[Rfam]
RNA: mir-653 microRNA precursor family
Organism: Equus caballus
RNA sequence: UCCUUCAGUGUUGAAACAAUCUCUGCUGAACCAGGCUCCAAACUACGUUCACUGGAGUUUGUUUCAAUAUUGCAAGAA
Number, nucleotide and partner (000 for none) at each position: 001u000002c000003c076004u075005u074006c072007a071008g070009u069010g068011u067012u066013g065014a064015a063016a062017c061018a060019a059020u000021c057022u056023c055024u054025g053026c000027u051028g050029a049030a048031c047032c000033a000034g000035g000036c000037u000038c000039c000040a000041a000042a000043c000044u000045a000046c000047g031048u030049u029050c028051a027052c000053u025054g024055g023056a022057g021058u000059u019060u018061g017062u016063u015064u014065c013066a012067a011068u010069a009070u008071u007072g006073c000074a005075a004076g003077a000078a000